[Rfam]
RNA: DABA-DC-AT RNA
Organism: Photobacterium ganghwense
RNA sequence: GCAAUCUCAGGGGGACAUUUUACUGAGACACACGGCAUAAAAAUGUAUUCGGGCUGAUUGCAUUUUUUAUGCGAUUGUAGGUAUUGGUCAUGCUAGUGGCCAAUAGAAGGGCAUUAAUAGCGCUGACUGCCGGCCAAAGAACCCGCAGCGGCAUAUUGAGGGAACCCAACU
Numbered sequence: 001g002c003a004a005u006c007u008c009a010g011g012g013g014g015a016c017a018u019u020u021u022a023c024u025g026a027g028a029c030a031c032a033c034g035g036c037a038u039a040a041a042a043a044u045g046u047a048u049u050c051g052g053g054c055u056g057a058u059u060g061c062a063u064u065u066u067u068u069a070u071g072c073g074a075u076u077g078u079a080g081g082u083a084u085u086g087g088u089c090a091u092g093c094u095a096g097u098g099g100c101c102a103a104u105a106g107a108a109g110g111g112c113a114u115u116a117a118u119a120g121c122g123c124u125g126a127c128u129g130c131c132g133g134c135c136a137a138a139g140a141a142c143c144c145g146c147a148g149c150g151g152c153a154u155a156u157u158g159a160g161g162g163a164a165c166c167c168a169a170c171u
Stems, first nucleotide, its partner, number of pairs: 006027005035072008045061003082105010121150005